[Rfam]
The record is a 173-nucleotide RNA from Atlanticothrix silvestris, which matches "Nitrogen stress-induced RNA 8" in Rfam.
Rfam classes the family as a small RNA.
A reference for the family is Brenes-Alvarez et al. (2016), "Identification of Conserved and Potentially Regulatory Small RNAs in Heterocystous Cyanobacteria", Front Microbiol.
Its family is annotated with heterocyst differentiation in the Gene Ontology.
NCBI's taxonomy places the organism under Bacteria, Cyanobacteriota, Cyanophyceae, Nostocales, Atlanticothrix silvestris.
The base pairs follow the family's consensus structure, which was predicted with RNAalifold.
RNA sequence: AUGAAAAUUGCCAAGAUUGAGCAUAAUUAAAGCAAUUCGUGCAAAAAAGCUUGCCGAUUUGAUUGUUUUUAUGAACUGCUCUUCUUACAACCUAUAAAUUUGAUUCGUCCUCUUUUUACAGAUUCUAAGGUGUGUUACCACUUUCAAGCUAUUUAGACGGGAUAAAACCCGUC
Numbered sequence: 001a002u003g004a005a006a007a008u009u010g011c012c013a014a015g016a017u018u019g020a021g022c023a024u025a026a027u028u029a030a031a032g033c034a035a036u037u038c039g040u041g042c043a044a045a046a047a048a049g050c051u052u053g054c055c056g057a058u059u060u061g062a063u064u065g066u067u068u069u070u071a072u073g074a075a076c077u078g079c080u081c082u083u084c085u086u087a088c089a090a091c092c093u094a095u096a097a098a099u100u101u102g103a104u105u106c107g108u109c110c111u112c113u114u115u116u117u118a119c120a121g122a123u124u125c126u127a128a129g130g131u132g133u134g135u136u137a138c139c140a141c142u143u144u145c146a147a148g149c150u151a152u153u154u155a156g157a158c159g160g161g162a163u164a165a166a167a168c169c170c171g172u173c
Stems, first nucleotide, its partner, number of pairs: 001114001003112002008090003013086004021077001022073003025067003029063001033061003037057003120153002122150001124148001127144006156173006